[Rfam]
RNA sequence: CUCAAUCUUUUUGCGGUCUGGGCUUGCUGUACGUAAAAACCUAACCGGGAAGCCCUUACCCCAAAAAGCAUUUG
Numbered sequence: 001c002u003c004a005a006u007c008u009u010u011u012u013g014c015g016g017u018c019u020g021g022g023c024u025u026g027c028u029g030u031a032c033g034u035a036a037a038a039a040c041c042u043a044a045c046c047g048g049g050a051a052g053c054c055c056u057u058a059c060c061c062c063a064a065a066a067a068g069c070a071u072u073u074g
Stems, first nucleotide, its partner, number of pairs: 007068007015060003020055004025050001027048002
This 74-nucleotide RNA from Hymenochirus boettgeri belongs to the Rfam family "mir-129 microRNA precursor family". The organism belongs to Hymenochirus, within Eukaryota. Rfam links the family to the GO terms miRNA-mediated post-transcriptional gene silencing, RISC complex and long-term synaptic potentiation. It scores 86 bits against the family's covariance model. The base pairs follow the family's consensus structure, which was predicted with RNAalifold.